[Rfam]
RNA sequence: ACCAAUGAUGCUAUGCCCAGCAUUUCAAGGUGCAAAUGGCUGCAGGAUCCUGUUUACAAAAUGAACCUACCUUGAGGCACUGUAUCCACAUGAUAUUCAUGGGCAAGCCUGAGGU
Numbered sequence: 001a002c003c004a005a006u007g008a009u010g011c012u013a014u015g016c017c018c019a020g021c022a023u024u025u026c027a028a029g030g031u032g033c034a035a036a037u038g039g040c041u042g043c044a045g046g047a048u049c050c051u052g053u054u055u056a057c058a059a060a061a062u063g064a065a066c067c068u069a070c071c072u073u074g075a076g077g078c079a080c081u082g083u084a085u086c087c088a089c090a091u092g093a094u095a096u097u098c099a100u101g102g103g104c105a106a107g108c109c110u111g112a113g114g115u
Stems, first nucleotide, its partner, number of pairs: 001115003048061001051058002
RNA: Small nucleolar RNA Z278
Organism: Triticum aestivum